RNA: L17-Actino-Proteobacteria ribosomal protein leader
RNA sequence: CGGCCCCGGGACCGCCCGGGGCCGUCCGCUGACACCGGUACCUGGUACGGCCGGUGCAG
Numbered sequence: 001c002g003g004c005c006c007c008g009g010g011a012c013c014g015c016c017c018g019g020g021g022c023c024g025u026c027c028g029c030u031g032a033c034a035c036c037g038g039u040a041c042c043u044g045g046u047a048c049g050g051c052c053g054g055u056g057c058a059g
Base pairs, nucleotide, nucleotide: 001024002023003022004021005020006019007018008017009016029059030058031057033056034055035054036053037052038051039050